A member of the RNA family "Metazoan signal recognition particle RNA" from Rhizophagus sp. MUCL 43196, 297 nucleotides long. Clan: SRP clan. Pairs were carried over by alignment from the consensus structure, which is taken from published work. The signal recognition particle (SRP) is a universally conserved ribonucleoprotein. Gene Ontology terms of the family: signal recognition particle, endoplasmic reticulum targeting and SRP-dependent cotranslational protein targeting to membrane, signal sequence recognition. The family has 91 seed sequences and 383,523 matches in Rfam 15.1. The family's RNA type in Rfam is non-coding RNA gene.
RNA sequence: GUCGGUCAAUUUGGCAGUUGACUGUAGCUCUGCUUCUGGAGGACAGGGUGGUGGAAUAAUCCUCAUUCAGAUCCACAAUCCCUGGCGCCGCACGUUGAUGGUAGUGUCUCAUUUGAACUUAGUGUGAACAUUCUGGCUUAUUUGUAAAUUUGGGCCAGGAGGUUCUUAAAUAGCGGGGAAUUGCCCGAGGCUGGAAACAGAGCAGGGAAAACUCGCAGCACCCAGUGGCAGUGAGAUAGCACACUUGAGUGAUUGGUUGUCAGGAUUGCUGAGUGAGAUGGUUGGACUGCUAUCCGA
Number, nucleotide and partner (000 for none) at each position: 001g044002u043003c042004g023005g022006u021007c020008a019009a018010u017011u016012u000013g000014g000015c000016a011017g010018u009019u008020g007021a006022c005023u004024g000025u000026a000027g000028c041029u040030c039031u000032g000033c000034u000035u000036c000037u000038g000039g030040a029041g028042g003043a002044c001045a000046g295047g294048g293049u292050g291051g290052u289053g288054g287055a000056a000057u284058a283059a282060u281061c280062c000063u276064c275065a274066u273067u272068c271069a270070g269071a000072u000073c000074c000075a000076c268077a267078a266079u000080c000081c264082c263083u262084g261085g000086c000087g257088c256089c255090g254091c251092a250093c249094g000095u247096u000097g000098a000099u000100g245101g244102u243103a000104g242105u241106g240107u239108c235109u234110c000111a000112u000113u231114u230115g229116a000117a226118c225119u224120u000121a000122g221123u220124g219125u218126g165127a164128a163129c162130a000131u160132u159133c158134u157135g156136g155137c154138u153139u152140a151141u000142u000143u148144g000145u000146a000147a000148a143149u000150u000151u140152g139153g138154g137155c136156c135157a134158g133159g132160a131161g000162g129163u128164u127165c126166u172167u000168a000169a000170a000171u000172a166173g216174c215175g214176g213177g212178g000179a000180a000181u000182u209183g000184c207185c206186c205187g000188a000189g000190g000191c200192u199193g198194g000195a000196a000197a000198c193199a192200g191201a000202g000203c000204a000205g186206g185207g184208a000209a182210a000211a000212c177213u176214c175215g174216c173217a000218g125219c124220a123221c122222c000223c000224a119225g118226u117227g000228g000229c115230a114231g113232u000233g000234a109235g108236a000237u000238a000239g107240c106241a105242c104243a102244c101245u100246u000247g095248a000249g093250u092251g091252a000253u000254u090255g089256g088257u087258u000259g000260u000261c084262a083263g082264g081265a000266u078267u077268g076269c070270u069271g068272a067273g066274u065275g064276a063277g000278a000279u000280g061281g060282u059283u058284g057285g000286a000287c054288u053289g052290c051291u050292a049293u048294c047295c046296g000297a000